A member of the RNA family "U4 spliceosomal RNA" from Myotis brandtii, 152 nucleotides long. A search with the family's covariance model found it, with a score of 57 bits. Taxonomically the source falls in Myotis (Eukaryota, Deuterostomia, Vertebrata, Boreoeutheria). Its Rfam clan is "U4 clan". The family's consensus secondary structure is taken from published work.
RNA sequence: AGCUUUGCGCAGUGGCAGUAUCGUGGCCAGUGAGGUUUAUCCGAGGCGCAAUUAUUGCUUAAAAAAAAAAAGUAUCUUGUCCUAGCUCAGUGAUGGCGAACCUUUUGAGCUUGGCGUGUCAGCAUUUUGAAAAACCCUAACUUAACUCUGGU
Numbered sequence: 001a002g003c004u005u006u007g008c009g010c011a012g013u014g015g016c017a018g019u020a021u022c023g024u025g026g027c028c029a030g031u032g033a034g035g036u037u038u039a040u041c042c043g044a045g046g047c048g049c050a051a052u053u054a055u056u057g058c059u060u061a062a063a064a065a066a067a068a069a070a071a072g073u074a075u076c077u078u079g080u081c082c083u084a085g086c087u088c089a090g091u092g093a094u095g096g097c098g099a100a101c102c103u104u105u106u107g108a109g110c111u112u113g114g115c116g117u118g119u120c121a122g123c124a125u126u127u128u129g130a131a132a133a134a135c136c137c138u139a140a141c142u143u144a145a146c147u148c149u150g151g152u
Base pairs, nucleotide, nucleotide: 020052021051023049024048026047027046028045034042035041077122078121079120081114082113084111085110086109087108088107089106